[Rfam]
RNA sequence: UGGACAGAUCAACUGUAUACGACUGUAUUCACGGUGUGAAACAGGGGAUUACUGAUUUUAAACGGAAAGUGAAUCAAUUAACAUAAUAGACUCCU
Dot-bracket structure: .(((....(..(.(((.(..((.((.((((((..((((((.(((.......))).)))...)))....)))))))).)).).))).).)..))).
This 95-nucleotide sequence from Nicotiana attenuata belongs to the Rfam family "MIR6152 microRNA precursor family". It scores 75 bits against the family's covariance model. The base pairs follow the family's consensus structure, which was predicted with RNAalifold.